[Rfam]
RNA: Small nucleolar RNA Z159/U59
Organism: Coptis chinensis
RNA sequence: GUCUCUAAUAAUGAUCAAAACAAUACUUUCGUUCUUCCGAGAUAAUAUAUGCGGAAACUUUUGGAAACCUGAACUGAAGAGAC
Numbered sequence: 001g002u003c004u005c006u007a008a009u010a011a012u013g014a015u016c017a018a019a020a021c022a023a024u025a026c027u028u029u030c031g032u033u034c035u036u037c038c039g040a041g042a043u044a045a046u047a048u049a050u051g052c053g054g055a056a057a058c059u060u061u062u063g064g065a066a067a068c069c070u071g072a073a074c075u076g077a078a079g080a081g082a083c
Base pairs, nucleotide, nucleotide: 003081004080005079006078